This 82-nucleotide sequence from Enterococcus phoeniculicola belongs to the Rfam family "SAM-III riboswitch aptamer (SMK box)".
The base pairs follow the family's consensus structure, which is taken from published work.
Its family is annotated with regulation of translational initiation and methionine adenosyltransferase activity in the Gene Ontology.

RNA sequence: GAACGUUGCAAGUUCCCGAGAGGAUUCGCAAGAAAUUGUGGAGAUGCCUUGUAACCGAAAUUAUUAAGGGGGAAUCAAAAUG
Numbered sequence: 001g002a003a004c005g006u007u008g009c010a011a012g013u014u015c016c017c018g019a020g021a022g023g024a025u026u027c028g029c030a031a032g033a034a035a036u037u038g039u040g041g042a043g044a045u046g047c048c049u050u051g052u053a054a055c056c057g058a059a060a061u062u063a064u065u066a067a068g069g070g071g072g073a074a075u076c077a078a079a080a081u082g
Stems, first nucleotide, its partner, number of pairs: 013074005020050004025042005055069002